[Rfam]
RNA sequence: CCAUUGAGUCAGCCUAAUUCAGCCCCCUGGGUUGAAGCGGAGGAACCAGUUUCCAAGGGGGCAAACCUCGCCUCAGGCGAGGGGGAGACCUCUCACUCCCAGCCCGUCAGCUAACUUCGUCGGCAUUGAGGGCAGACUCG
Dot-bracket structure: ...........(((...((((((((...))))))))((((((....(..........)(((.....((((.......))))..((((........))))...))).........)))))).)))................
Shown here is a 140-nucleotide sequence from Pseudanabaena sp. FACHB-2040, a member of the family "c-di-AMP riboswitch aptamer (ydaO/yuaA leader)".